[Rfam]
RNA sequence: CCCCAGGGCUUUCGUCAGGAUCCUUCCGCAUUUUUUAUGCUCCAUGGGAGAUCGUCCGUUACAUCCCUGGGAGAGCGAUUUCCAUCUCCAACGUCCUUGGUCUGGUCUUCAGAUCAGGGAUUGGUCGUCUCCGUUUUGGAGUUCUACCGCCGGAUACCGGAUGUGUUUCAGACGAGUUGAAGGCCGCUACUGUCCGUCUUGGACAGCUCAUGGCGGUCUUCUUAGUGAUGAUUCAUACAUCU
Numbered sequence: 001c002c003c004c005a006g007g008g009c010u011u012u013c014g015u016c017a018g019g020a021u022c023c024u025u026c027c028g029c030a031u032u033u034u035u036u037a038u039g040c041u042c043c044a045u046g047g048g049a050g051a052u053c054g055u056c057c058g059u060u061a062c063a064u065c066c067c068u069g070g071g072a073g074a075g076c077g078a079u080u081u082c083c084a085u086c087u088c089c090a091a092c093g094u095c096c097u098u099g100g101u102c103u104g105g106u107c108u109u110c111a112g113a114u115c116a117g118g119g120a121u122u123g124g125u126c127g128u129c130u131c132c133g134u135u136u137u138g139g140a141g142u143u144c145u146a147c148c149g150c151c152g153g154a155u156a157c158c159g160g161a162u163g164u165g166u167u168u169c170a171g172a173c174g175a176g177u178u179g180a181a182g183g184c185c186g187c188u189a190c191u192g193u194c195c196g197u198c199u200u201g202g203a204c205a206g207c208u209c210a211u212g213g214c215g216g217u218c219u220u221c222u223u224a225g226u227g228a229u230g231a232u233u234c235a236u237a238c239a240u241c242u
Stems, first nucleotide, its partner, number of pairs: 003070005018057004023050005031037001081161002086159001094119003098116007123147001127143001129141005163236003168231003179221004184216004190206007
A member of the RNA family "Small nucleolar RNA snR191" from Thermothielavioides terrestris, 242 nucleotides long. A reference for the family is Badis et al. (2003), "A snoRNA that guides the two most conserved pseudouridine modifications within rRNA confers a growth advantage in yeast", RNA. The source organism's lineage runs through Eukaryota, Ascomycota, saccharomyceta, leotiomyceta and Thermothielavioides terrestris. The family's RNA type in Rfam is H/ACA-box small nucleolar RNA. Rfam links the family to the GO terms nucleolus and RNA processing.